Nucleotides: 049
Stems, first nucleotide, its partner, number of pairs: 002019001004017005036049005
Number, partner (000 for none) and nucleotide at each position: 001000a002019g003000c004017c005016a006015g007014g008013g009000a010000c011000g012000a013008c014007c015006c016005u017004g018000a019002u020000a021000g022000u023000g024000c025000u026000c027000a028000a029000u030000u031000u032000u033000c034000c035000a036049c037048c038047g039046g040045g041000a042000c043000g044000a045040c046039c047038c048037g049036g